[Rfam]
RNA: SL2 RNA
RNA sequence: GGAUUAGUCCCAGUAUUACAAGGUACUACAGGGAUUUGACAUGUGCAGUGCACAGGGUCGGGAUCCGAAAUUUUUGGAAAGCUCUUCCGGGGAUAUCCGGUGGAACGAA
Dot-bracket structure: ......(.((..((..(((...)))..)).))...).(((.(((((...)))))..))).......................(.(((((.((....))..))))).)..
Numbered sequence: 001g002g003a004u005u006a007g008u009c010c011c012a013g014u015a016u017u018a019c020a021a022g023g024u025a026c027u028a029c030a031g032g033g034a035u036u037u038g039a040c041a042u043g044u045g046c047a048g049u050g051c052a053c054a055g056g057g058u059c060g061g062g063a064u065c066c067g068a069a070a071u072u073u074u075u076g077g078a079a080a081g082c083u084c085u086u087c088c089g090g091g092g093a094u095a096u097c098c099g100g101u102g103g104a105a106c107g108a109a
Stems, first nucleotide, its partner, number of pairs: 007036001009032002013029002017025003038059003042054005083107001085105005091098002